This 59-nucleotide sequence from Monodelphis domestica belongs to the Rfam family "mir-7398 microRNA precursor family". Rfam links the family to the GO terms RISC complex and miRNA-mediated post-transcriptional gene silencing. Lineage of the source: Eukaryota > Deuterostomia > Gnathostomata > Amniota > Monodelphis.

RNA sequence: UGUGUGAAAAGGGGUGAGGGUACUGUGCACUAUUGGGUAACCCUCCCUUCUUUCACAGU
Numbered sequence: 001u002g003u004g005u006g007a008a009a010a011g012g013g014g015u016g017a018g019g020g021u022a023c024u025g026u027g028c029a030c031u032a033u034u035g036g037g038u039a040a041c042c043c044u045c046c047c048u049u050c051u052u053u054c055a056c057a058g059u
Stems, first nucleotide, its partner, number of pairs: 002056003006053003010049002013047002016044001018042001022038003